A member of the RNA family "Small nucleolar RNA ACA64" from Bucco capensis, 122 nucleotides long. A search with the family's covariance model found it, with a score of 45 bits. For this family Rfam cites "A computational screen for mammalian pseudouridylation guide H/ACA RNAs" (Schattner et al., RNA, 2006). It is annotated as an H/ACA-box small nucleolar RNA. Pairs were carried over by alignment from the consensus structure, which was predicted with WAR.
RNA sequence: ACACUCUGAAAAUCCCUUUUCUCCUGUGGCCCCUGGUGCGAUAACUGUGCUGACAGCAGAGGGAGCAUUAAAUUCAUUGCCCACAGUAAAGUGUGGGAAAUGAUACCCAUGUUCCUAUAAUC
Numbered sequence: 001a002c003a004c005u006c007u008g009a010a011a012a013u014c015c016c017u018u019u020u021c022u023c024c025u026g027u028g029g030c031c032c033c034u035g036g037u038g039c040g041a042u043a044a045c046u047g048u049g050c051u052g053a054c055a056g057c058a059g060a061g062g063g064a065g066c067a068u069u070a071a072a073u074u075c076a077u078u079g080c081c082c083a084c085a086g087u088a089a090a091g092u093g094u095g096g097g098a099a100a101u102g103a104u105a106c107c108c109a110u111g112u113u114c115c116u117a118u119a120a121u122c
Base pairs, nucleotide, nucleotide: 006047008045010042014038016036021028062115064113065112066111067110068109074103075102076101077100078099082095083094084093